[Rfam]
RNA sequence: AAGUAUUGCUUCUAGGGUUCCGGUUUGGCCAAUAUUGGUCUGAAUGUCUGGUCCAAGAGUAGCAAGCGGCUCGCUAGUCAAGACUCAAGGAAGUUUGUCUAAUGCGCCGUUACACGGAGGGAUAAAAGCCCGGGAGAA
Numbered sequence: 001a002a003g004u005a006u007u008g009c010u011u012c013u014a015g016g017g018u019u020c021c022g023g024u025u026u027g028g029c030c031a032a033u034a035u036u037g038g039u040c041u042g043a044a045u046g047u048c049u050g051g052u053c054c055a056a057g058a059g060u061a062g063c064a065a066g067c068g069g070c071u072c073g074c075u076a077g078u079c080a081a082g083a084c085u086c087a088a089g090g091a092a093g094u095u096u097g098u099c100u101a102a103u104g105c106g107c108c109g110u111u112a113c114a115c116g117g118a119g120g121g122a123u124a125a126a127a128g129c130c131c132g133g134g135a136g137a138a
Base pairs, nucleotide, nucleotide: 007064008063009062010061012059015054016053020051021050022048023045024044025043026042027041028040065111066110067109068108069107070106072104113133115136119131120130121129
RNA: Guanidine-I riboswitch aptamer
Organism: Leptolyngbyaceae cyanobacterium M33_DOE_097